Rfam assigns this 328-nucleotide RNA sequence from Allofranklinella schreckenbergeri to the family "Bacterial RNase P class A". The source organism's lineage runs through Bacteria, Betaproteobacteria, Burkholderiales, Comamonadaceae and Allofranklinella. Rfam classes the family as a ribozyme. Rfam's curators write: Ribonuclease P (RNase P) is a ubiquitous endoribonuclease, found in archaea, bacteria and eukarya as well as chloroplasts and mitochondria. It scores 214 bits against the family's covariance model.

[Rfam]
RNA sequence: GAAGCAGGCUAGGCCGCCGCUGGUGCAAGCGUGGAAACACCGCACUGGAGGAACGUCCGGACUGCACAGGGCAGCGUAGCAGGUAACACCUGCCCACCGCGAGGUGAGGAUUAGAGCAACAGAGACGAGUCGCAGCGCCUUCGGGCACUGCGGGUGAAACGGGCAAUCUCUACGCGCAGCAAUACCAAAUAGGCAUGCAAUGAACUGGCUCCGGCGAGCAUGCGGGUAGGUAGCACCGAGCCGGUUGGGCGACCACCGGCCCAGAUUGAUGGCGGUCACAUGGCAGUUUUGCCAUGCACAGAAUCCGGCGUAUCGGCCUGCUUCACAC
Numbered sequence: 001g002a003a004g005c006a007g008g009c010u011a012g013g014c015c016g017c018c019g020c021u022g023g024u025g026c027a028a029g030c031g032u033g034g035a036a037a038c039a040c041c042g043c044a045c046u047g048g049a050g051g052a053a054c055g056u057c058c059g060g061a062c063u064g065c066a067c068a069g070g071g072c073a074g075c076g077u078a079g080c081a082g083g084u085a086a087c088a089c090c091u092g093c094c095c096a097c098c099g100c101g102a103g104g105u106g107a108g109g110a111u112u113a114g115a116g117c118a119a120c121a122g123a124g125a126c127g128a129g130u131c132g133c134a135g136c137g138c139c140u141u142c143g144g145g146c147a148c149u150g151c152g153g154g155u156g157a158a159a160c161g162g163g164c165a166a167u168c169u170c171u172a173c174g175c176g177c178a179g180c181a182a183u184a185c186c187a188a189a190u191a192g193g194c195a196u197g198c199a200a201u202g203a204a205c206u207g208g209c210u211c212c213g214g215c216g217a218g219c220a221u222g223c224g225g226g227u228a229g230g231u232a233g234c235a236c237c238g239a240g241c242c243g244g245u246u247g248g249g250c251g252a253c254c255a256c257c258g259g260c261c262c263a264g265a266u267u268g269a270u271g272g273c274g275g276u277c278a279c280a281u282g283g284c285a286g287u288u289u290u291g292c293c294a295u296g297c298a299c300a301g302a303a304u305c306c307g308g309c310g311u312a313u314c315g316g317c318c319u320g321c322u323u324c325a326c327a328c
Stems, first nucleotide, its partner, number of pairs: 001324010011313001012277007020048007053311003057308005062179004069211004074175005079093005094108001095106004109170002114168002116164002132151004137146003183232004193223006240260005246255003